[Rfam]
RNA sequence: AGUGUAUUGUGAUGAUUGUCGCUUUGAUUGCUUUGAAGCAAUGUGAAAAACCCAUUUCACCGGCUCUGAAAACU
Numbered sequence: 001a002g003u004g005u006a007u008u009g010u011g012a013u014g015a016u017u018g019u020c021g022c023u024u025u026g027a028u029u030g031c032u033u034u035g036a037a038g039c040a041a042u043g044u045g046a047a048a049a050a051c052c053c054a055u056u057u058c059a060c061c062g063g064c065u066c067u068g069a070a071a072a073c074u
Base pairs, nucleotide, nucleotide: 001074002073003072005070